[Rfam]
RNA sequence: AAGCGAUGAAACGCAGGAGGGUACCGGCAAGCCUUGCUGUGCGGAGCUUUCGGGAGGGGUUGUGUAGUGAAACCUCAAGCCGGAGUAGGCAUAAGCCGAAAGAAAAUACUCAAA
Numbered sequence: 001a002a003g004c005g006a007u008g009a010a011a012c013g014c015a016g017g018a019g020g021g022u023a024c025c026g027g028c029a030a031g032c033c034u035u036g037c038u039g040u041g042c043g044g045a046g047c048u049u050u051c052g053g054g055a056g057g058g059g060u061u062g063u064g065u066a067g068u069g070a071a072a073c074c075u076c077a078a079g080c081c082g083g084a085g086u087a088g089g090c091a092u093a094a095g096c097c098g099a100a101a102g103a104a105a106a107u108a109c110u111c112a113a114a
Base pairs, nucleotide, nucleotide: 001049002048003047004046012041013040014039015038016037018035019034020033021032022031024083025082026081027080064109065108066107088097089096090095
Record summary
drum RNA: a 114-nucleotide RNA sequence. The sequence is in the family's curated seed alignment. From the family's description: Firmicutes, Bacteroidetes (1 example), Proteobacteria (2 examples), Spirochaetes (2 examples). It is annotated as a small RNA. Pairs were carried over by alignment from the consensus structure, which is taken from published work.